[Rfam]
RNA sequence: AGCAAUUACAGUGCUUCAUUUUGUGGGAGUACUGCCAUUAUCCUGCUGAAAGAAAAGCCAUGUUGGUUGUUUCUGAUUUUUGCUUUUGGGGUAAAAAUCGUGACACCUUGACAUGAACAGUU
Numbered sequence: 001a002g003c004a005a006u007u008a009c010a011g012u013g014c015u016u017c018a019u020u021u022u023g024u025g026g027g028a029g030u031a032c033u034g035c036c037a038u039u040a041u042c043c044u045g046c047u048g049a050a051a052g053a054a055a056a057g058c059c060a061u062g063u064u065g066g067u068u069g070u071u072u073c074u075g076a077u078u079u080u081u082g083c084u085u086u087u088g089g090g091g092u093a094a095a096a097a098u099c100g101u102g103a104c105a106c107c108u109u110g111a112c113a114u115g116a117a118c119a120g121u122u
Stems, first nucleotide, its partner, number of pairs: 009034009059115008074100012
Rfam assigns this 122-nucleotide RNA sequence to the family "Small nucleolar RNA SNORA69".
By type it is an H/ACA-box small nucleolar RNA.
About the family: U69 is a member of the H/ACA class of small nucleolar RNAs (snoRNAs) which act as guides in the the modification of uridines to pseudouridines.